[Rfam]
RNA sequence: CGUCCUCGACCUGCUGCGGGCAGAUGAAAUGGAUGUGGGUGUCGAAGCCGCCGGCGGUGAGGAUCUUUCCCUCGCCGGCGAUGAUCUCGGUGCCGGGGCCGAUGACGAUCGUCACGUUCGGCUGGAUGUCGGGAUUGCCGGCCUUGCCGAUGGCGGCGAUGCGGCCCUCCUUGAUGCCGAUAUCGGCCUUCACGAUGCCCCAGUGGUCGAGGAUCAGGGCGUUGGUGAUCACCGUGUCGACCGCGCCCUGGCGGUUGGUGAGCUGGCUCUGGCCCAUGCCGUCGCGGAUG
Numbered sequence: 001c002g003u004c005c006u007c008g009a010c011c012u013g014c015u016g017c018g019g020g021c022a023g024a025u026g027a028a029a030u031g032g033a034u035g036u037g038g039g040u041g042u043c044g045a046a047g048c049c050g051c052c053g054g055c056g057g058u059g060a061g062g063a064u065c066u067u068u069c070c071c072u073c074g075c076c077g078g079c080g081a082u083g084a085u086c087u088c089g090g091u092g093c094c095g096g097g098g099c100c101g102a103u104g105a106c107g108a109u110c111g112u113c114a115c116g117u118u119c120g121g122c123u124g125g126a127u128g129u130c131g132g133g134a135u136u137g138c139c140g141g142c143c144u145u146g147c148c149g150a151u152g153g154c155g156g157c158g159a160u161g162c163g164g165c166c167c168u169c170c171u172u173g174a175u176g177c178c179g180a181u182a183u184c185g186g187c188c189u190u191c192a193c194g195a196u197g198c199c200c201c202a203g204u205g206g207u208c209g210a211g212g213a214u215c216a217g218g219g220c221g222u223u224g225g226u227g228a229u230c231a232c233c234g235u236g237u238c239g240a241c242c243g244c245g246c247c248c249u250g251g252c253g254g255u256u257g258g259u260g261a262g263c264u265g266g267c268u269c270u271g272g273c274c275c276a277u278g279c280c281g282u283c284g285c286g287g288a289u290g
Base pairs, nucleotide, nucleotide: 001290002289003288005286007284008283009282012158013157014156015155016154017153018076019075022072023071030053031052032051034050035049037048040045057069059067077148078147081144083142085140090138091137092136097130098129099128100125104122106120107119108117109116164273165272166271170266171265173263175261177260186220187219188218189217190216200209223257224256225255230250231249234248236246